[Rfam]
RNA sequence: UCGGUUCCGGUUCACCCCGAGCAGCACACCCGGGGACCCGGCGACC
Numbered sequence: 001u002c003g004g005u006u007c008c009g010g011u012u013c014a015c016c017c018c019g020a021g022c023a024g025c026a027c028a029c030c031c032g033g034g035g036a037c038c039c040g041g042c043g044a045c046c
Stems, first nucleotide, its partner, number of pairs: 003046003007041004015035005
A member of the RNA family "L31-Actinobacteria ribosomal protein leader", 46 nucleotides long.